Background: Shown here is a 196-nucleotide RNA from Thalassotalea sp. ND16A, a member of the family "Lysine riboswitch aptamer". Rfam links the family to the GO term lysine biosynthetic process. The organism belongs to Thalassotalea, within Bacteria. A reference for the family is Mandal et al. (2003), "Riboswitches Control Fundamental Biochemical Pathways in Bacillus subtilis and Other Bacteria", Cell.

[Rfam]
RNA sequence: AACACCAGAAGAGGUUGCAUUAGCCAGGUAGGUAAUUUGAGGGGCCACACCCCAAAGACAAUUAUUGAGGGGGACUAAUGCCGAGAAUGAACGCGAAUAGCCAAUUUUUAAUAAAUUACUAGGUGGAAAGCGUCAUUCGGUCAUAACGGUUGAAUCCUUAUGACUGUCACCGAAACGGUGGAGAGCUUCUGGCUGA
Numbered sequence: 001a002a003c004a005c006c007a008g009a010a011g012a013g014g015u016u017g018c019a020u021u022a023g024c025c026a027g028g029u030a031g032g033u034a035a036u037u038u039g040a041g042g043g044g045c046c047a048c049a050c051c052c053c054a055a056a057g058a059c060a061a062u063u064a065u066u067g068a069g070g071g072g073g074a075c076u077a078a079u080g081c082c083g084a085g086a087a088u089g090a091a092c093g094c095g096a097a098u099a100g101c102c103a104a105u106u107u108u109u110a111a112u113a114a115a116u117u118a119c120u121a122g123g124u125g126g127a128a129a130g131c132g133u134c135a136u137u138c139g140g141u142c143a144u145a146a147c148g149g150u151u152g153a154a155u156c157c158u159u160a161u162g163a164c165u166g167u168c169a170c171c172g173a174a175a176c177g178g179u180g181g182a183g184a185g186c187u188u189c190u191g192g193c194u195g196a
Base pairs, nucleotide, nucleotide: 006191007190008189009188010187011186017081018080019079020078021077022076023075025073031066032065033064034063035062036061037060085138086137087136088135089134091133092132093131094130139165140164141163142162143161144160145159146158148156167181168180169179170178171177172176